Rfam assigns this 77-nucleotide sequence from Triticum turgidum to the family "Plastid-clpP 5UTR RNA". Pairs were carried over by alignment from the consensus structure, which was predicted with LocARNA. A reference for the family is Richter et al. (2023), "Retrograde signaling in plants: A critical review focusing on the GUN pathway and beyond", Plant Commun. The match comes from Rfam's covariance-model search (65 bits). About the family: Plastid clpP is a non-coding RNA (ncRNA) recognised in plastids. It was found in the prime untranslated region (5UTR) of a protease complex subunit (clpP) in plastids, suggesting a posible cis-regulatory function.

RNA sequence: AACUCUGUGCGCACGUUCAUAAGAAGAAAGAGAAGCAGAUCUAUUCUAUACUCGAUAAGUGCCAAUAUGCAAUGGGU
Numbered sequence: 001a002a003c004u005c006u007g008u009g010c011g012c013a014c015g016u017u018c019a020u021a022a023g024a025a026g027a028a029a030g031a032g033a034a035g036c037a038g039a040u041c042u043a044u045u046c047u048a049u050a051c052u053c054g055a056u057a058a059g060u061g062c063c064a065a066u067a068u069g070c071a072a073u074g075g076g077u
Stems, first nucleotide, its partner, number of pairs: 003030002006027001008025001010023001051076003059068003